RNA: MIR162_1 microRNA precursor family
Organism: Cephalotus follicularis
RNA sequence: AGUUAAAGCGCUGGAUGCAGAGGUUUAUCGAUCGAUUCAUGAUUUUUGUGUUGUAUUAUUUUUCACAACAAAAACUACCAGGAAAAGAUCGAUAAACCGCUGCCUCCAGUGACUUCACC
Dot-bracket structure: ............(((..(((.((((.(((((((..(((...........................................)))..))))))).)))).)))..)))............